Shown here is a 68-nucleotide RNA sequence from Ziziphus jujuba, a member of the family "Plastid-clpP 5UTR RNA".
It is annotated as a cis-regulatory element.
On this family, see Richter et al., Plant Commun 2023: "Retrograde signaling in plants: A critical review focusing on the GUN pathway and beyond".
The family has 343 seed sequences and 2,105 matches in Rfam 15.1.
Rfam's curators write: Plastid clpP is a non-coding RNA (ncRNA) recognised in plastids. It was found in the prime untranslated region (5UTR) of a protease complex subunit (clpP) in plastids, suggesting a posible cis-regulatory function.

RNA sequence: AAUUUUGUUUGUAGGAACUAAAGGAACAGAUCUAUUCUACACUCGAUAAAUACCAAUACUCAAUGGUA
Number, nucleotide and partner (000 for none) at each position: 001a000002a000003u022004u021005u000006u000007g018008u017009u016010u015011g000012u000013a000014g000015g010016a009017a008018c007019u000020a000021a004022a003023g000024g000025a000026a000027c000028a000029g000030a000031u000032c000033u000034a000035u000036u000037c000038u000039a000040c000041a000042c000043u066044c065045g000046a000047u000048a000049a000050a000051u058052a057053c000054c000055a000056a000057u052058a051059c000060u000061c000062a000063a000064u000065g044066g043067u000068a000